[Rfam]
RNA sequence: UGUCAAACGUAUUAAAAGCUCCCGACGGGUGUCACACCGGUGUCCGCUGCGGGAUCCUGAGAUGCGUGAGA
Numbered sequence: 001u002g003u004c005a006a007a008c009g010u011a012u013u014a015a016a017a018g019c020u021c022c023c024g025a026c027g028g029g030u031g032u033c034a035c036a037c038c039g040g041u042g043u044c045c046g047c048u049g050c051g052g053g054a055u056c057c058u059g060a061g062a063u064g065c066g067u068g069a070g071a
Base pairs, nucleotide, nucleotide: 007067008066009065010064011063012062013061021053022052023051024050
Trypanosomatid snoRNA TB9Cs1H3: a 71-nucleotide RNA from Trypanosoma rangeli. The family's RNA type in Rfam is H/ACA-box small nucleolar RNA. Gene Ontology terms of the family: nucleolus and RNA processing. A reference for the family is Liang et al. (2005), "A genome-wide analysis of C/D and H/ACA-like small nucleolar RNAs in Trypanosoma brucei reveals a trypanosome-specific pattern of rRNA modification", RNA.